[Rfam]
Rfam assigns this 146-nucleotide RNA sequence from Populus deltoides to the family "MIR480 microRNA precursor family".
The organism belongs to Populus, within Eukaryota.
RNA sequence: UAAUUUGUCUAGGCAGAUCCUCAUCUAGUUAUGACAGACCUAUACCUGGAUGUCUAGAAUCACCUGUUAUCGCAAGCCCAACUACAUCAUAACUGAAUCCAAACCACAUAGCUAUCCCAAGAUAUCCUCUACUUGCAGAUCAUAGU
Numbered sequence: 001u002a003a004u005u006u007g008u009c010u011a012g013g014c015a016g017a018u019c020c021u022c023a024u025c026u027a028g029u030u031a032u033g034a035c036a037g038a039c040c041u042a043u044a045c046c047u048g049g050a051u052g053u054c055u056a057g058a059a060u061c062a063c064c065u066g067u068u069a070u071c072g073c074a075a076g077c078c079c080a081a082c083u084a085c086a087u088c089a090u091a092a093c094u095g096a097a098u099c100c101a102a103a104c105c106a107c108a109u110a111g112c113u114a115u116c117c118c119a120a121g122a123u124a125u126c127c128u129c130u131a132c133u134u135g136c137a138g139a140u141c142a143u144a145g146u
Stems, first nucleotide, its partner, number of pairs: 004144001006142002008139002013129001017125002022121001024119001026114005
It scores 74 bits against the family's covariance model.